[Rfam]
RNA: Small nucleolar RNA R30/Z108
RNA sequence: AGGUGAUACGAUGAGGAUAAAAGAGCUCCGUCUUCUGAUUUCACCGUGAGGACGCUCGCUGGCAGAAUCGAACCUAAUAAUCUUUAGCCACCGCUGAGUAU
Numbered sequence: 001a002g003g004u005g006a007u008a009c010g011a012u013g014a015g016g017a018u019a020a021a022a023g024a025g026c027u028c029c030g031u032c033u034u035c036u037g038a039u040u041u042c043a044c045c046g047u048g049a050g051g052a053c054g055c056u057c058g059c060u061g062g063c064a065g066a067a068u069c070g071a072a073c074c075u076a077a078u079a080a081u082c083u084u085u086a087g088c089c090a091c092c093g094c095u096g097a098g099u100a101u
Stems, first nucleotide, its partner, number of pairs: 006101004